[Rfam]
Nucleotides: 101
Stems, first nucleotide, its partner, number of pairs: 001101008013042005021031003025077004043069004048065002051061004073093001079089004
Number, partner (000 for none) and nucleotide at each position: 001101u002100u003099c004098u005097u006096a007095u008094c009000u010000c011000g012000a013042g014041a015040g016039g017038u018000g019000g020000a021031g022030g023029g024000a025077c026076u027075g028074g029023c030022c031021c032000u033000a034000c035000g036000a037000a038017g039016c040015c041014u042013c043069g044068g045067c046066a047000g048065c049064g050000g051061a052060c053059u054058a055000u056000c057000a058054u059053a060052g061051u062000a063000c064049u065048g066046u067045g068044c069043c070000a071000a072000u073093u074028c075027c076026a077025g078000u079089a080088g081087c082086a083000a084000u085000u086082u087081g088080c089079u090000u091000g092000a093073a094008g095007a096006u097005a098004a099003g100002a101001a
The family of this 101-nucleotide RNA from Priestia koreensis is "SAM riboswitch aptamer (S box leader)". The base pairs follow the family's consensus structure, which is taken from published work. A search with the family's covariance model found it, with a score of 83 bits. The organism belongs to Priestia, within Bacteria.